RNA: 7SK RNA
Organism: Ictidomys tridecemlineatus
RNA sequence: GGAUGUGAGGGCGAUCUGGCUGCGACAUCUGUCACCCCAUUGAUCGCCAGGGUUGAUUCGGCUGAUCUGGCUGGCUAGGCGGGUGUCCCCUUCCUCCCUCACCGCUCCAUGUGCGUCCCUCCCGAAGCUGCGCGCUCGGUCGAAGAGGACGACCUUCCCCGAUAGAGGAGGACCGGUCUUUGGUCAAGGGUAUAUGAGUAGCUGCGCUCCCCUGCUAGAACCUCCAAACAAGCUCUCAAGAAUAAACUAAAUCUCAGCAAAACUCCUGCAGAUUAAACCAACAAGCAAUGCAUGCGAGAUCAUUUUAUU
Numbered sequence: 001g002g003a004u005g006u007g008a009g010g011g012c013g014a015u016c017u018g019g020c021u022g023c024g025a026c027a028u029c030u031g032u033c034a035c036c037c038c039a040u041u042g043a044u045c046g047c048c049a050g051g052g053u054u055g056a057u058u059c060g061g062c063u064g065a066u067c068u069g070g071c072u073g074g075c076u077a078g079g080c081g082g083g084u085g086u087c088c089c090c091u092u093c094c095u096c097c098c099u100c101a102c103c104g105c106u107c108c109a110u111g112u113g114c115g116u117c118c119c120u121c122c123c124g125a126a127g128c129u130g131c132g133c134g135c136u137c138g139g140u141c142g143a144a145g146a147g148g149a150c151g152a153c154c155u156u157c158c159c160c161g162a163u164a165g166a167g168g169a170g171g172a173c174c175g176g177u178c179u180u181u182g183g184u185c186a187a188g189g190g191u192a193u194a195u196g197a198g199u200a201g202c203u204g205c206g207c208u209c210c211c212c213u214g215c216u217a218g219a220a221c222c223u224c225c226a227a228a229c230a231a232g233c234u235c236u237c238a239a240g241a242a243u244a245a246a247c248u249a250a251a252u253c254u255c256a257g258c259a260a261a262a263c264u265c266c267u268g269c270a271g272a273u274u275a276a277a278c279c280a281a282c283a284a285g286c287a288a289u290g291c292a293u294g295c296g297a298g299a300u301c302a303u304u305u306u307a308u309u
Stems, first nucleotide, its partner, number of pairs: 001108003005102007013093002018090002024087010035074002037070003042067004046062003116171002118168004122139004127135002140162003147158003201263001203261001207257002214255001223249001298309003